The family of this 98-nucleotide RNA sequence from Enhydra lutris is "mir-544 microRNA precursor family". The family has 16 seed sequences and 10,750 matches in Rfam 15.1. Taxonomically the source falls in Enhydra lutris (Eukaryota, Metazoa, Deuterostomia, Mustelidae). The base pairs follow the family's consensus structure, which was predicted with RNAalifold. Gene Ontology terms of the family: RISC complex and miRNA-mediated post-transcriptional gene silencing.
[Rfam]
RNA sequence: AUCGCCUGGAGAGCAUGUUAAAAUGCAGAUUCUGAUUCAGUGGGUCUGGGGUUAAAUGGCAGAUUCUGCAUUUCUAGCAAGAUCCCAGGUGAUGCUGA
Numbered sequence: 001a002u003c004g005c006c007u008g009g010a011g012a013g014c015a016u017g018u019u020a021a022a023a024u025g026c027a028g029a030u031u032c033u034g035a036u037u038c039a040g041u042g043g044g045u046c047u048g049g050g051g052u053u054a055a056a057u058g059g060c061a062g063a064u065u066c067u068g069c070a071u072u073u074c075u076a077g078c079a080a081g082a083u084c085c086c087a088g089g090u091g092a093u094g095c096u097g098a
Stems, first nucleotide, its partner, number of pairs: 003091003009085001011083001014081001016079005021073003025069005031063003
Dot-bracket structure: ..(((...(.(..(.((((((((.(((((.(((...........................))).))))).))).))))).).).)...))).......